This 76-nucleotide sequence from Alligator mississippiensis belongs to the Rfam family "Mammalian CPEB3 ribozyme".
It scores 55 bits against the family's covariance model.
[Rfam]
RNA sequence: ACCUCAUAGUUUUAGGCCAUAGCAGAAGCUCUCAUGGUGCAGCCUGUCAGAUUCCAAUGAAUCUGCAAAUUCUGCU
Numbered sequence: 001a002c003c004u005c006a007u008a009g010u011u012u013u014a015g016g017c018c019a020u021a022g023c024a025g026a027a028g029c030u031c032u033c034a035u036g037g038u039g040c041a042g043c044c045u046g047u048c049a050g051a052u053u054c055c056a057a058u059g060a061a062u063c064u065g066c067a068a069a070u071u072c073u074g075c076u
Stems, first nucleotide, its partner, number of pairs: 015044003021076007028040002048065007